[Rfam]
RNA sequence: CAAGGCGAUCCAGAACGCUGAUAAUAUUUUCUCAUUGAAUAGGUCAUUUAACCUUGAAUAAUUGAGGGAUGACCUCAUUUAAUCUCCUGUAGCAAAAUUGACCUAUUAUGGGAGGAGUCAUGCGUCUGGAUCGUCUUAC
Numbered sequence: 001c002a003a004g005g006c007g008a009u010c011c012a013g014a015a016c017g018c019u020g021a022u023a024a025u026a027u028u029u030u031c032u033c034a035u036u037g038a039a040u041a042g043g044u045c046a047u048u049u050a051a052c053c054u055u056g057a058a059u060a061a062u063u064g065a066g067g068g069a070u071g072a073c074c075u076c077a078u079u080u081a082a083u084c085u086c087c088u089g090u091a092g093c094a095a096a097a098u099u100g101a102c103c104u105a106u107u108a109u110g111g112g113a114g115g116a117g118u119c120a121u122g123c124g125u126c127u128g129g130a131u132c133g134u135c136u137u138a139c
Base pairs, nucleotide, nucleotide: 002137003136004135005134006133007132008131009130010129011128012127015125016124017123018122020119021118022117025041026040027039028038030037052067053066054065055064056063057062068079069078070077071076083115084114085113086112087111088110089109090108091107
Dot-bracket structure: .(((((((((((..((((.(((..((((.(......)))))..........((((((....))))))((((....))))...(((((((((...............))))))))).)))..)))).)))))))))))..
A member of the RNA family "Yersinia sRNA 155(RyfD)" from Kluyvera cryocrescens, 139 nucleotides long. Rfam's curators write: The sRNA was identified by and is confirmed to have a stable secondary structure by using genome-wide structure probing at different temperatures. The function is unknown. It is annotated as a small RNA. The pairing is the family consensus, mapped onto this sequence. On this family, see Righetti et al., Proc Natl Acad Sci U S A 2016: "Temperature-responsive in vitro RNA structurome of Yersinia pseudotuberculosis".